RNA sequence: UUUUAGAAAAAAGGCAAGAUGUUGGCAUAGCUGUUGUUAUCAAAGCCCUGCUAUGCCACCAAAUUGCCAUUUUUCUCUCCC
Numbered sequence: 001u002u003u004u005a006g007a008a009a010a011a012a013g014g015c016a017a018g019a020u021g022u023u024g025g026c027a028u029a030g031c032u033g034u035u036g037u038u039a040u041c042a043a044a045g046c047c048c049u050g051c052u053a054u055g056c057c058a059c060c061a062a063a064u065u066g067c068c069a070u071u072u073u074u075c076u077c078u079c080c081c
Stems, first nucleotide, its partner, number of pairs: 005076007013068005020061002023058009
Shown here is an 81-nucleotide RNA sequence from Gouania willdenowi, a member of the family "mir-31 microRNA precursor family". The family's consensus secondary structure was predicted with RNAalifold. On this family, see Aravin et al., Dev Cell 2003: "The small RNA profile during Drosophila melanogaster development". The source organism's lineage runs through Eukaryota, Teleostei, Ctenosquamata, Blenniiformes and Gouania. The family is grouped with related families in Rfam's "mir-31 microRNA precursor family". It scores 72 bits against the family's covariance model. Rfam 15.1 lists 1,181 matches to the family in 783 species.